This 113-nucleotide RNA from Panagrolaimus davidi belongs to the Rfam family "SL2 RNA". The source organism's lineage runs through Eukaryota, Opisthokonta, Metazoa, Bilateria and Panagrolaimus. Its family is annotated with mRNA trans splicing, via spliceosome in the Gene Ontology. On this family, see Evans and Blumenthal, Mol Cell Biol 2000: "trans splicing of polycistronic Caenorhabditis elegans pre-mRNAs: analysis of the SL2 RNA". The family's consensus secondary structure is taken from published work. From the family's description: This family represents SL2 RNA. SL2 RNA is involved in trans splicing in lower eukaryotes. Rfam classes the family as a non-coding RNA gene.
RNA sequence: GUUUUUUACCCAAGUAUCAAGGUACUAGGUGUUUCCAAUGACCAUCCUUUUUUGGUUGUGUCAUUAACCAUCAAUUUUUGGAUCAGCAUUGCCGGGGAUAUAUCCGGAAAUCA
Numbered sequence: 001g002u003u004u005u006u007u008a009c010c011c012a013a014g015u016a017u018c019a020a021g022g023u024a025c026u027a028g029g030u031g032u033u034u035c036c037a038a039u040g041a042c043c044a045u046c047c048u049u050u051u052u053u054g055g056u057u058g059u060g061u062c063a064u065u066a067a068c069c070a071u072c073a074a075u076u077u078u079u080g081g082a083u084c085a086g087c088a089u090u091g092c093c094g095g096g097g098a099u100a101u102a103u104c105c106g107g108a109a110a111u112c113a
Stems, first nucleotide, its partner, number of pairs: 008032001009029002013026005039063004043058002046055002088111003092107004097101001